The record is a 60-nucleotide sequence from Luteimicrobium xylanilyticum, which matches "msiK RNA" in Rfam. Rfam 15.1 lists 1,374 matches to the family in 1,364 species. Lineage of the source: Bacteria > Bacillati > Actinomycetota > Actinomycetes > Luteimicrobium. Rfam classes the family as a cis-regulatory element.
RNA sequence: CCUCGUCAUCCCGUCACGACGGAUCGUCCGGCACGUACCUGCCGGUGAAGGGAAGUAGCA
Numbered sequence: 001c002c003u004c005g006u007c008a009u010c011c012c013g014u015c016a017c018g019a020c021g022g023a024u025c026g027u028c029c030g031g032c033a034c035g036u037a038c039c040u041g042c043c044g045g046u047g048a049a050g051g052g053a054a055g056u057a058g059c060a
Stems, first nucleotide, its partner, number of pairs: 010052003014048003028045006